[Rfam]
RNA sequence: ACGACGUAAACCUAAAGUCCAGGGCCUUCAUUAAGACCCGAAGUAAAAUUUUUGCAGGCCCGUUUUGAGAUCGGGCUA
Numbered sequence: 001a002c003g004a005c006g007u008a009a010a011c012c013u014a015a016a017g018u019c020c021a022g023g024g025c026c027u028u029c030a031u032u033a034a035g036a037c038c039c040g041a042a043g044u045a046a047a048a049u050u051u052u053u054g055c056a057g058g059c060c061c062g063u064u065u066u067g068a069g070a071u072c073g074g075g076c077u078a
Base pairs, nucleotide, nucleotide: 022039023038024037026035027034028033057077058076059075060074061073062072064070065069
RNA: SmY spliceosomal RNA